The record is a 100-nucleotide sequence from Thermogemmata fonticola, which matches "c-di-GMP-I-GGC riboswitch aptamer" in Rfam. NCBI's taxonomy places the organism under Bacteria, Pseudomonadati, Planctomycetia, Gemmatales, Thermogemmata. The family has 40 seed sequences and 1,298 matches in Rfam 15.1. A search with the family's covariance model found it, with a score of 71 bits.
RNA sequence: CCUCGAAAGGGCAAACCCGUCGCAAGGCGGGGGCGCAAAGCUACGGGCCUGAAGUUUCCCCUGUUCACCCACAAAACUCCAGGUCGCCGGGCUGCCGAAG
Numbered sequence: 001c002c003u004c005g006a007a008a009g010g011g012c013a014a015a016c017c018c019g020u021c022g023c024a025a026g027g028c029g030g031g032g033g034c035g036c037a038a039a040g041c042u043a044c045g046g047g048c049c050u051g052a053a054g055u056u057u058c059c060c061c062u063g064u065u066c067a068c069c070c071a072c073a074a075a076a077c078u079c080c081a082g083g084u085c086g087c088c089g090g091g092c093u094g095c096c097g098a099a100g
Stems, first nucleotide, its partner, number of pairs: 001100001003097001011036002016031006034086001039093004044089003047084005